The family of this 65-nucleotide RNA from Flavobacterium cerinum is "S15-Flavobacteria ribosomal protein leader". For this family Rfam cites "Discovery of 20 novel ribosomal leader candidates in bacteria and archaea" (Eckert and Weinberg, BMC Microbiol, 2020).
RNA sequence: UACCUUUGCACCCAAUCAGGAUAUACCUGAUUAUACAUAAUAAUCAUUUAAAUAAUAUUAGCAUG
Numbered sequence: 001u002a003c004c005u006u007u008g009c010a011c012c013c014a015a016u017c018a019g020g021a022u023a024u025a026c027c028u029g030a031u032u033a034u035a036c037a038u039a040a041u042a043a044u045c046a047u048u049u050a051a052a053u054a055a056u057a058u059u060a061g062c063a064u065g
Base pairs, nucleotide, nucleotide: 014032015031016030017029018028019027